The record is a 341-nucleotide RNA sequence from Candidatus Babela massiliensis, which matches "Bacterial RNase P class A" in Rfam. The organism belongs to Candidatus Babela, within Bacteria. The match comes from Rfam's covariance-model search (246 bits). The base pairs follow the family's consensus structure, which is taken from published work.
RNA sequence: UGAGGUAGUUUAGGUAAUCGCUUGAGUUUAAAAAGCUUGAGAGGAAAGUCCGGACUUCAAACGAAAUAGGUGCCUUAGAAUAUAAGGGGGAUGUAAGUCCACGGAAAGUGCCACAGAAAAUAACCGCCAAUAUUUUUAUAUUGGUAAGGGUGAAAAUGUGUGGUAAGAGCACACGCAAGUUUAGUAGUAAUACUUUACUUGGGGUAAACCCUGCCUGAAGCAAGACAAAAUAAGCAUGUACGGUUUUUCGUUCCGAUUUAAACAUGCGGGUGUGUCGCAUAGAUAGAUGAUUACCACUGUUUUUAACAGUACAGAAUCCGGCUUAUUAACUGCCUCAGAAG
Numbered sequence: 001u002g003a004g005g006u007a008g009u010u011u012a013g014g015u016a017a018u019c020g021c022u023u024g025a026g027u028u029u030a031a032a033a034a035g036c037u038u039g040a041g042a043g044g045a046a047a048g049u050c051c052g053g054a055c056u057u058c059a060a061a062c063g064a065a066a067u068a069g070g071u072g073c074c075u076u077a078g079a080a081u082a083u084a085a086g087g088g089g090g091a092u093g094u095a096a097g098u099c100c101a102c103g104g105a106a107a108g109u110g111c112c113a114c115a116g117a118a119a120a121u122a123a124c125c126g127c128c129a130a131u132a133u134u135u136u137u138a139u140a141u142u143g144g145u146a147a148g149g150g151u152g153a154a155a156a157u158g159u160g161u162g163g164u165a166a167g168a169g170c171a172c173a174c175g176c177a178a179g180u181u182u183a184g185u186a187g188u189a190a191u192a193c194u195u196u197a198c199u200u201g202g203g204g205u206a207a208a209c210c211c212u213g214c215c216u217g218a219a220g221c222a223a224g225a226c227a228a229a230a231u232a233a234g235c236a237u238g239u240a241c242g243g244u245u246u247u248u249c250g251u252u253c254c255g256a257u258u259u260a261a262a263c264a265u266g267c268g269g270g271u272g273u274g275u276c277g278c279a280u281a282g283a284u285a286g287a288u289g290a291u292u293a294c295c296a297c298u299g300u301u302u303u304u305a306a307c308a309g310u311a312c313a314g315a316a317u318c319c320g321g322c323u324u325a326u327u328a329a330c331u332g333c334c335u336c337a338g339a340a341g
Stems, first nucleotide, its partner, number of pairs: 001337010012326001013295007021041009046324003050321005055220004063254001065252002068216005073087005088102001089100004103211002108209002110205003124149002126145008157175006178200001179198002183194004224276004234267006248256002
Rfam describes the family as follows. Ribonuclease P (RNase P) is a ubiquitous endoribonuclease, found in archaea, bacteria and eukarya as well as chloroplasts and mitochondria.